[Rfam]
RNA sequence: CGAGCAUCAGUGAUGAGUUAGCCAAAUCGUUAUCCUUGCACUUUGAUUUUACAGUGAAGAAAAUCAUGGGGACAGAUUUCUCUGAGAUGCUC
Dot-bracket structure: .(((((((.............................................................................)))))))
About this RNA: A member of the RNA family "Small nucleolar RNA snoR26" from Populus trichocarpa, 92 nucleotides long. NCBI's taxonomy places the organism under Eukaryota, Streptophyta, Gunneridae, Saliceae, Populus. The sequence is in the family's curated seed alignment. Rfam classes the family as a C/D-box small nucleolar RNA. Rfam 15.1 lists 611 matches to the family in 220 species. The family's consensus secondary structure was predicted with WAR.